[Rfam]
RNA sequence: ACCUGCAUUCGAAAGUGAUUAUGGUAUUCUGUGACCUGGUCAUUGAUAGUGCAGGGAGAGAAACUUAAGAAAGUUUUUCCCGUGUUUGGAGGGUCCACCUGUCCCAUCCAAACCCUGUAACUUUCUAACA
Number, nucleotide and partner (000 for none) at each position: 001a000002c055003c054004u053005g052006c051007a050008u049009u048010c000011g000012a000013a000014a044015g043016u042017g041018a040019u039020u038021a037022u000023g036024g035025u034026a000027u000028u000029c000030u000031g000032u000033g000034a025035c024036c023037u021038g020039g019040u018041c017042a016043u015044u014045g000046a000047u000048a009049g008050u007051g006052c005053a004054g003055g002056g000057a000058g000059a000060g000061a000062a000063a000064c000065u000066u127067a000068a126069g125070a124071a123072a122073g121074u120075u000076u000077u000078u000079c000080c000081c000082g000083u000084g113085u112086u111087u110088g109089g107090a000091g105092g104093g103094u000095c000096c000097a000098c000099c000100u000101g000102u000103c093104c092105c091106a000107u089108c000109c088110a087111a086112a085113c084114c000115c000116u000117g000118u000119a000120a074121c073122u072123u071124u070125c069126u068127a066128a000129c000130a000
A member of the RNA family "Small nucleolar RNA SNORA71" from Ornithorhynchus anatinus, 130 nucleotides long. On this family, see Ganot et al., Genes Dev 1997: "The family of box ACA small nucleolar RNAs is defined by an evolutionarily conserved secondary structure and ubiquitous sequence elements essential for RNA accumulation". The family's consensus secondary structure was predicted with PFOLD. About the family: The members of this family belong to the H/ACA class of snoRNAs which bind a number of proteins (including dyskerin, Gar1p and Nop10p) to form snoRNP complexes.